[Rfam]
RNA sequence: UUUUUUUGCAAUAAAAUAAAAUGAAUACAAUAACAAACAAUACUUGGUGGUGGCACUUUUUAGAUUUAAAAACCUGAGAGGACGCUACUGAAUAUACUCAUAUUUAUUAAAGCCUGCU
Numbered sequence: 001u002u003u004u005u006u007u008g009c010a011a012u013a014a015a016a017u018a019a020a021a022u023g024a025a026u027a028c029a030a031u032a033a034c035a036a037a038c039a040a041u042a043c044u045u046g047g048u049g050g051u052g053g054c055a056c057u058u059u060u061u062a063g064a065u066u067u068a069a070a071a072a073c074c075u076g077a078g079a080g081g082a083c084g085c086u087a088c089u090g091a092a093u094a095u096a097c098u099c100a101u102a103u104u105u106a107u108u109a110a111a112g113c114c115u116g117c118u
Stems, first nucleotide, its partner, number of pairs: 037098001040095003044091004049086004056081002058078003063073001065071001

Description:
This 118-nucleotide RNA sequence from Putridiphycobacter roseus belongs to the Rfam family "Bacteroidete tryptophan peptide leader RNA". The family's consensus secondary structure is taken from published work. The organism belongs to Putridiphycobacter, within Bacteria. The family's RNA type in Rfam is cis-regulatory leader.